[Rfam]
RNA sequence: CUGCAGCCAGUUAAACUGUGCUCUUUCCCCAUGGGGGCCCAGUGUGCAAUGGCUGCAAACAGCAGCCUCCUUGGUAGUGUAUGCAGUCUAUUGAUUGUCUGGUUGCCCUAAGGGACCUUGGAAACAGCC
Numbered sequence: 001c002u003g004c005a006g007c008c009a010g011u012u013a014a015a016c017u018g019u020g021c022u023c024u025u026u027c028c029c030c031a032u033g034g035g036g037g038c039c040c041a042g043u044g045u046g047c048a049a050u051g052g053c054u055g056c057a058a059a060c061a062g063c064a065g066c067c068u069c070c071u072u073g074g075u076a077g078u079g080u081a082u083g084c085a086g087u088c089u090a091u092u093g094a095u096u097g098u099c100u101g102g103u104u105g106c107c108c109u110a111a112g113g114g115a116c117c118u119u120g121g122a123a124a125c126a127g128c129c
Stems, first nucleotide, its partner, number of pairs: 002048004015043004021037004073117003084105005